Streptomyces sRNA 4677: a 242-nucleotide RNA sequence from Streptomyces avermitilis. The sequence is in the family's curated seed alignment. A reference for the family is Hindra et al. (2014), "Complex intra-operonic dynamics mediated by a small RNA in Streptomyces coelicolor", PLoS One. The organism belongs to Streptomyces avermitilis, within Bacteria.
RNA sequence: UGCUCCGGUGCCAGGGGCGCUCUUCCCAAAGAACUACAAGGGUGAAAGAACCCCCACCAAGCCCCACCCCUCCCGCCCGCGGCACACAGUCACCCGCCCGAGUGAACGUCACCAACUCGGCUGGAUUCCAAGCUGGUUGCCUGUCCUACGCUCAGCGCAACAACCGCAGACAUGCGACGGCCCCCGCCGGGACGCCAAUCCCAGUGCGAGGGCCUGACCACCGAGGAAGUUAGGGCUUCCUG
Numbered sequence: 001u002g003c004u005c006c007g008g009u010g011c012c013a014g015g016g017g018c019g020c021u022c023u024u025c026c027c028a029a030a031g032a033a034c035u036a037c038a039a040g041g042g043u044g045a046a047a048g049a050a051c052c053c054c055c056a057c058c059a060a061g062c063c064c065c066a067c068c069c070c071u072c073c074c075g076c077c078c079g080c081g082g083c084a085c086a087c088a089g090u091c092a093c094c095c096g097c098c099c100g101a102g103u104g105a106a107c108g109u110c111a112c113c114a115a116c117u118c119g120g121c122u123g124g125a126u127u128c129c130a131a132g133c134u135g136g137u138u139g140c141c142u143g144u145c146c147u148a149c150g151c152u153c154a155g156c157g158c159a160a161c162a163a164c165c166g167c168a169g170a171c172a173u174g175c176g177a178c179g180g181c182c183c184c185c186g187c188c189g190g191g192a193c194g195c196c197a198a199u200c201c202c203a204g205u206g207c208g209a210g211g212g213c214c215u216g217a218c219c220a221c222c223g224a225g226g227a228a229g230u231u232a233g234g235g236c237u238u239c240c241u242g
Stems, first nucleotide, its partner, number of pairs: 007222004016077004090105004095100001120156005179214005185208003189202004225240005
Rfam describes the family as follows. Located in the intergenic region between anti-sigma factor SCO4677 gene and a putative regulatory protein gene SCO4676. scr4677 expression requires the SCO4677 activity and scr4677 sRNA itself seem to affect the levels of the SCO4676-associated transcripts. The family's RNA type in Rfam is small RNA.